[Rfam]
Annotation
A member of the RNA family "chrB-a RNA" from Pseudorhizobium banfieldiae, 81 nucleotides long. The family's consensus secondary structure is taken from published work. It scores 71 bits against the family's covariance model.
RNA sequence: CACAUGGGGUCGCGAUCACCCCACGAGGCGUCAUGCUAGAGAAUCGCGUCCAUUGACCCGGCUAACGGAGGACGCGCGAUG
Numbered sequence: 001c002a003c004a005u006g007g008g009g010u011c012g013c014g015a016u017c018a019c020c021c022c023a024c025g026a027g028g029c030g031u032c033a034u035g036c037u038a039g040a041g042a043a044u045c046g047c048g049u050c051c052a053u054u055g056a057c058c059c060g061g062c063u064a065a066c067g068g069a070g071g072a073c074g075c076g077c078g079a080u081g
Base pairs, nucleotide, nucleotide: 005023006022007021008020009019010018046075047074048073049072050071051070